A member of the RNA family "MIR6151 microRNA precursor family" from Nicotiana sylvestris, 71 nucleotides long. The match comes from Rfam's covariance-model search (75 bits). Rfam links the family to the GO terms RISC complex and miRNA-mediated post-transcriptional gene silencing.
[Rfam]
RNA sequence: AUUCGUUGGAUGAAUGUGAUGCAUUAGAUUGAUUUCGUUCAAUCCGAGCCCCAUAUUCAUCCGGGAUUCUU
Numbered sequence: 001a002u003u004c005g006u007u008g009g010a011u012g013a014a015u016g017u018g019a020u021g022c023a024u025u026a027g028a029u030u031g032a033u034u035u036c037g038u039u040c041a042a043u044c045c046g047a048g049c050c051c052c053a054u055a056u057u058c059a060u061c062c063g064g065g066a067u068u069c070u071u
Stems, first nucleotide, its partner, number of pairs: 006064002009061010021049002024047002027044006
Dot-bracket structure: .....((.((((((((((..((.((.((((((......)))))).))))..)))))))))).)).......